[Rfam]
This 125-nucleotide RNA from Paramesorhizobium leguminum belongs to the Rfam family "Alphaproteobacterial sRNA ar35".
RNA sequence: ACACGGCUUAGAGCAGGAUUGCAUCCGGCUCUAAUCCAUCUCCGCUUUCCUUUGACCACGGAUGUACUGGCAUUGUUGAAAGCAGGAUGACGAAGGGCCGGGCAAUUUGCCUGGCCUUUUUUGUU
Dot-bracket structure: ...(((.(..............).))).............((.((((..(..((.(((.........)))))..)....)))).))((((.(((((((((((((...))))))))))))))))).